[Rfam]
RNA sequence: GGCUGGAAGCUUUCGAUUAGGGGCAGAUGCCCUUGGGAAGGUCUGAGAUGAGACAUGUGCCGAGAGGGUGCCUGGUUAAUGCCAGGAGCCGUUCCUAACAGAAAAAUACACUUGCUAUGUGACCGGAAGGAAUGAGCAUGGCGAGUUUGGAAAGUGGACGGUGUCUUAGUGCGAAUAGUCAAACUCGAAAGGCAGCGAUGUGCUGUAACCCAAUUCAGACUACUCUCCAGCAGCC
Numbered sequence: 001g002g003c004u005g006g007a008a009g010c011u012u013u014c015g016a017u018u019a020g021g022g023g024c025a026g027a028u029g030c031c032c033u034u035g036g037g038a039a040g041g042u043c044u045g046a047g048a049u050g051a052g053a054c055a056u057g058u059g060c061c062g063a064g065a066g067g068g069u070g071c072c073u074g075g076u077u078a079a080u081g082c083c084a085g086g087a088g089c090c091g092u093u094c095c096u097a098a099c100a101g102a103a104a105a106a107u108a109c110a111c112u113u114g115c116u117a118u119g120u121g122a123c124c125g126g127a128a129g130g131a132a133u134g135a136g137c138a139u140g141g142c143g144a145g146u147u148u149g150g151a152a153a154g155u156g157g158a159c160g161g162u163g164u165c166u167u168a169g170u171g172c173g174a175a176u177a178g179u180c181a182a183a184c185u186c187g188a189a190a191g192g193c194a195g196c197g198a199u200g201u202g203c204u205g206u207a208a209c210c211c212a213a214u215u216c217a218g219a220c221u222a223c224u225c226u227c228c229a230g231c232a233g234c235c
Base pairs, nucleotide, nucleotide: 001235002234003233004232005228006227007226010191011190012189013188014187015186016185019033020032021031022030043218044217045216046215047214051166052165053164054163060067061066071086072085073084074083075082076081089161090160091159092158093157094156110146111145112144192206193205194204195203196202
Rfam assigns this 235-nucleotide RNA from Ordospora colligata to the family "Nuclear RNase P". The family's RNA type in Rfam is ribozyme. Pairs were carried over by alignment from the consensus structure, which is taken from published work. Rfam links the family to the GO terms ribonuclease P activity, ribonuclease P complex and tRNA processing. Rfam describes the family as follows. Ribonuclease P (RNase P) is a ubiquitous endoribonuclease, found in archaea, bacteria and eukarya as well as chloroplasts and mitochondria.